[Rfam]
Shown here is a 78-nucleotide sequence from Nezara viridula, a member of the family "mir-184 microRNA precursor family".
RNA sequence: UCGGUUACGGGGCCUUGUCAUUCUCCUGUCCAGUCUUGUAUGUUACUGGACGGAGAACUGAUAAGGGCUUGUGAACCA
Numbered sequence: 001u002c003g004g005u006u007a008c009g010g011g012g013c014c015u016u017g018u019c020a021u022u023c024u025c026c027u028g029u030c031c032a033g034u035c036u037u038g039u040a041u042g043u044u045a046c047u048g049g050a051c052g053g054a055g056a057a058c059u060g061a062u063a064a065g066g067g068c069u070u071g072u073g074a075a076c077c078a
Stems, first nucleotide, its partner, number of pairs: 013066008021057006029049002

About this RNA
The family has 66 seed sequences and 948 matches in Rfam 15.1. NCBI's taxonomy places the organism under Eukaryota, Dicondylia, Eumetabola, Prosorrhyncha, Nezara. A search with the family's covariance model found it, with a score of 60 bits. The base pairs follow the family's consensus structure, which was predicted with PFOLD.